[Rfam]
RNA sequence: CGCUUGCGGUGAUGAAUUGUACAAGGACGGUAUCUGAGCGAGGUGGUUCUUGAAAGGCCAUUCCUUGCAUGAUUACAUCCAGAACUGAGACUAAUAUCUGAGCAAACU
Numbered sequence: 001c002g003c004u005u006g007c008g009g010u011g012a013u014g015a016a017u018u019g020u021a022c023a024a025g026g027a028c029g030g031u032a033u034c035u036g037a038g039c040g041a042g043g044u045g046g047u048u049c050u051u052g053a054a055a056g057g058c059c060a061u062u063c064c065u066u067g068c069a070u071g072a073u074u075a076c077a078u079c080c081a082g083a084a085c086u087g088a089g090a091c092u093a094a095u096a097u098c099u100g101a102g103c104a105a106a107c108u
Base pairs, nucleotide, nucleotide: 002107004105005104006103007102038068039067040066041065042064043063
Shown here is a 108-nucleotide RNA from Panicum miliaceum, a member of the family "Small nucleolar RNA Z118/Z121/Z120". For this family Rfam cites "The high diversity of snoRNAs in plants: identification and comparative study of 120 snoRNA genes from Oryza sativa" (Chen et al., Nucleic Acids Res, 2003). The match comes from Rfam's covariance-model search (94 bits).